Source information: Archaeal large subunit ribosomal RNA: a 585-nucleotide part of an RNA from Ignicoccus hospitalis. The organism belongs to Ignicoccus hospitalis, within Archaea. Its Rfam clan is "LSU clan".
RNA sequence: CCCCCCGUAGGGAGAGAAGACCCCGUGGAGCUUUACUGCAGCCCGGCGUUGCCCCCCGGGUGGGGGUGCGUAGCGUAGGUGGGAGCCGGUGAACCGGCCCCUCCGGGGGUCGGGGAGGCGCCCAUGAAACACCACCCACCCUCACCCGGGGGGCUUACCCCGGGGGAAGCCCGGGGGACAGCGCCGGGUGGGCAGUUUGGCUGGGGCGGCACGCCCGCGAGAGGGUAACACGGGCGCCCUAAGGUCGGCUCAGGCGGGUCAGAAACCCGCCGUAGAGUGCAAGGGCAAAAGCCGGCCUGACCGGACCCCUAAAGGCAGGGGGUCCGGCCGGGAAACCGCGGCCUAGCGAACGCUCGUGUCCCCCCUGGUGGGGGCCGGGCAUGACAGAAAAGUUACCCCGGGGAUAACAGAGUCGUCGCGGGCGAGAGCCCACAUCGACCCCGCGGUUUGCUACCUCGAUGUCGGCUUUUCCCAUCCUGGGGGUGCAGCAGCCCCCAAGGGUGGGGCUGCCCGCCCAUUAAAGGGGAACGUGAGCUGGGUUUAGACCGUCGUGAGACAGGUCGGACUCUACCCACGGGGGGUGUC
Numbered sequence: 001c002c003c004c005c006c007g008u009a010g011g012g013a014g015a016g017a018a019g020a021c022c023c024c025g026u027g028g029a030g031c032u033u034u035a036c037u038g039c040a041g042c043c044c045g046g047c048g049u050u051g052c053c054c055c056c057c058g059g060g061u062g063g064g065g066g067u068g069c070g071u072a073g074c075g076u077a078g079g080u081g082g083g084a085g086c087c088g089g090u091g092a093a094c095c096g097g098c099c100c101c102u103c104c105g106g107g108g109g110u111c112g113g114g115g116a117g118g119c120g121c122c123c124a125u126g127a128a129a130c131a132c133c134a135c136c137c138a139c140c141c142u143c144a145c146c147c148g149g150g151g152g153g154c155u156u157a158c159c160c161c162g163g164g165g166g167a168a169g170c171c172c173g174g175g176g177g178a179c180a181g182c183g184c185c186g187g188g189u190g191g192g193c194a195g196u197u198u199g200g201c202u203g204g205g206g207c208g209g210c211a212c213g214c215c216c217g218c219g220a221g222a223g224g225g226u227a228a229c230a231c232g233g234g235c236g237c238c239c240u241a242a243g244g245u246c247g248g249c250u251c252a253g254g255c256g257g258g259u260c261a262g263a264a265a266c267c268c269g270c271c272g273u274a275g276a277g278u279g280c281a282a283g284g285g286c287a288a289a290a291g292c293c294g295g296c297c298u299g300a301c302c303g304g305a306c307c308c309c310u311a312a313a314g315g316c317a318g319g320g321g322g323u324c325c326g327g328c329c330g331g332g333a334a335a336c337c338g339c340g341g342c343c344u345a346g347c348g349a350a351c352g353c354u355c356g357u358g359u360c361c362c363c364c365c366u367g368g369u370g371g372g373g374g375c376c377g378g379g380c381a382u383g384a385c386a387g388a389a390a391a392g393u394u395a396c397c398c399c400g401g402g403g404a405u406a407a408c409a410g411a412g413u414c415g416u417c418g419c420g421g422g423c424g425a426g427a428g429c430c431c432a433c434a435u436c437g438a439c440c441c442c443g444c445g446g447u448u449u450g451c452u453a454c455c456u457c458g459a460u461g462u463c464g465g466c467u468u469u470u471c472c473c474a475u476c477c478u479g480g481g482g483g484u485g486c487a488g489c490a491g492c493c494c495c496c497a498a499g500g501g502u503g504g505g506g507c508u509g510c511c512c513g514c515c516c517a518u519u520a521a522a523g524g525g526g527a528a529c530g531u532g533a534g535c536u537g538g539g540u541u542u543a544g545a546c547c548g549u550c551g552u553g554a555g556a557c558a559g560g561u562c563g564g565a566c567u568c569u570a571c572c573c574a575c576g577g578g579g580g581g582u583g584u585c
Stems, first nucleotide, its partner, number of pairs: 001581008010573003014568002022402004027398002029394005035196004042188007051154018078136005085119003097110005158176007199212001200210003213235005238341002244296006250276002253271006277286002301327009329338001331336001352380005358375001360374004411452003415449001416446007426436002463538001464536004468530001469527005476501002480495005504516004544562004548557003